[Rfam]
RNA sequence: UAAUAUAAAUAGAAAGAGUUGAGCUAGAACUCGACUCUUGUGUAGAACCGUUUAAGACGGUGGCUACCACUUAUAUUAGAUUAUA
Numbered sequence: 001u002a003a004u005a006u007a008a009a010u011a012g013a014a015a016g017a018g019u020u021g022a023g024c025u026a027g028a029a030c031u032c033g034a035c036u037c038u039u040g041u042g043u044a045g046a047a048c049c050g051u052u053u054a055a056g057a058c059g060g061u062g063g064c065u066a067c068c069a070c071u072u073a074u075a076u077u078a079g080a081u082u083a084u085a
Stems, first nucleotide, its partner, number of pairs: 020033004047061006